[Rfam]
RNA sequence: GGAUAGUACUGUUUUGCUAUCUCCGACCAAUAACACAAUGGCAUAUGGAAAAGUUAUCAUACCUGUCAUUGUGUUAUUAGCCGGAAAUAGCAAAACGUGUUAUCC
Numbered sequence: 001g002g003a004u005a006g007u008a009c010u011g012u013u014u015u016g017c018u019a020u021c022u023c024c025g026a027c028c029a030a031u032a033a034c035a036c037a038a039u040g041g042c043a044u045a046u047g048g049a050a051a052a053g054u055u056a057u058c059a060u061a062c063c064u065g066u067c068a069u070u071g072u073g074u075u076a077u078u079a080g081c082c083g084g085a086a087a088u089a090g091c092a093a094a095a096c097g098u099g100u101u102a103u104c105c
Base pairs, nucleotide, nucleotide: 002104003103004102005101012095013094014093015092016091017090018089019088020087022085023084024083025082027080029078030077031076032075033074034073035072036071037070038069039068040067041066042065043064046061047060050057
Shown here is a 105-nucleotide RNA sequence from Prunus persica, a member of the family "MIR6274 microRNA precursor family". The match comes from Rfam's covariance-model search (82 bits). Rfam 15.1 lists 342 matches to the family in 8 species.